[Rfam]
Small nucleolar RNA snoR111: a 123-nucleotide sequence from Gossypium mustelinum. The source organism's lineage runs through Eukaryota, Embryophyta, Tracheophyta, Mesangiospermae and Gossypium. The match comes from Rfam's covariance-model search (77 bits). It is annotated as an H/ACA-box small nucleolar RNA. Gene Ontology terms of the family: nucleolus and RNA processing. A reference for the family is Marker et al. (2002), "Experimental RNomics: identification of 140 candidates for small non-messenger RNAs in the plant Arabidopsis thaliana", Curr Biol.
RNA sequence: AAGGAAGUGAGGAGACAUUUUAUUAUUGUCUCUCUUCAUUGAGGUAUAGUGAAAUAGAAGGCCGAGAUAUCGUUUCAGUCAUCAGUUUUCUCAAUUGAUGAAUUGAUUGUUGCUUGUCCACAU
Numbered sequence: 001a002a003g004g005a006a007g008u009g010a011g012g013a014g015a016c017a018u019u020u021u022a023u024u025a026u027u028g029u030c031u032c033u034c035u036u037c038a039u040u041g042a043g044g045u046a047u048a049g050u051g052a053a054a055u056a057g058a059a060g061g062c063c064g065a066g067a068u069a070u071c072g073u074u075u076c077a078g079u080c081a082u083c084a085g086u087u088u089u090c091u092c093a094a095u096u097g098a099u100g101a102a103u104u105g106a107u108u109g110u111u112g113c114u115u116g117u118c119c120a121c122a123u
Stems, first nucleotide, its partner, number of pairs: 006040006012032006060119002063116004069107004079101006086094002